[Rfam]
RNA sequence: GUUAUUUGAGGUGGAGGAAUUCGUCCGAUCCACACGCCGAUGGCUUGACAGGGGAAACCCGAGAGAUGCAGGAGAAGCGGACGCCUGCCAAAUAAC
Number, nucleotide and partner (000 for none) at each position: 001g096002u095003u094004a093005u092006u091007u090008g089009a000010g000011g033012u032013g031014g030015a029016g000017g000018a000019a000020u000021u000022c000023g082024u081025c080026c079027g078028a000029u015030c014031c013032a012033c011034a000035c063036g044037c043038c042039g000040a000041u000042g038043g037044c036045u000046u000047g000048a000049c000050a000051g000052g000053g000054g000055a000056a000057a000058c000059c000060c000061g000062a000063g035064a000065g000066a000067u000068g088069c087070a086071g085072g084073a000074g000075a000076a000077g000078c027079g026080g025081a024082c023083g000084c072085c071086u070087g069088c068089c008090a007091a006092a005093u004094a003095a002096c001

The record is a 96-nucleotide RNA sequence from Lachnospiraceae bacterium OM04-12BH, which matches "skipping-rope RNA" in Rfam. The source organism's lineage runs through Bacteria, Bacillota, Clostridia, Lachnospirales and Lachnospiraceae. A search with the family's covariance model found it, with a score of 48 bits.